About this RNA: Pistol ribozyme: a 69-nucleotide RNA sequence from bacterium 0.1xD8-71. The literature on the family includes a 2015 paper in Nat Chem Biol by Weinberg et al., "New classes of self-cleaving ribozymes revealed by comparative genomics analysis". Pairs were carried over by alignment from the consensus structure, which is taken from published work.
RNA sequence: AGUCGUCGCGGCGACUAUAAACAGGACUUUAGGCCGCAGCGUUCCCACUGGUAACGGUGGGAUGUAGUC
Numbered sequence: 001a002g003u004c005g006u007c008g009c010g011g012c013g014a015c016u017a018u019a020a021a022c023a024g025g026a027c028u029u030u031a032g033g034c035c036g037c038a039g040c041g042u043u044c045c046c047a048c049u050g051g052u053a054a055c056g057g058u059g060g061g062a063u064g065u066a067g068u069c
Base pairs, nucleotide, nucleotide: 001016002015003014004013006038008037009036010035011034025069026068027067028066033040043062044061045060046059047058048057049056